Shown here is a 59-nucleotide RNA sequence from Hypseocharis bilobata, a member of the family "Plastid-psbA-4 3UTR RNA". On this family, see Richter et al., Plant Commun 2023: "Retrograde signaling in plants: A critical review focusing on the GUN pathway and beyond". Rfam describes the family as follows. Plastid psbA-4 is a non-coding RNA (ncRNA) present in plastids. It was identified in inverted repeat sequences in the 3 prime untranslate region (3UTR) of photosystem II quinone-binding protein (psbA). The organism belongs to Hypseocharis, within Eukaryota.
RNA sequence: AAAGUAACGGAGCAAUACUAAUUUCUUGGUAGAACAAGAAGUGGGUUAUUGCUCCCUUU
Numbered sequence: 001a002a003a004g005u006a007a008c009g010g011a012g013c014a015a016u017a018c019u020a021a022u023u024u025c026u027u028g029g030u031a032g033a034a035c036a037a038g039a040a041g042u043g044g045g046u047u048a049u050u051g052c053u054c055c056c057u058u059u
Stems, first nucleotide, its partner, number of pairs: 006058002009055009021042001023040006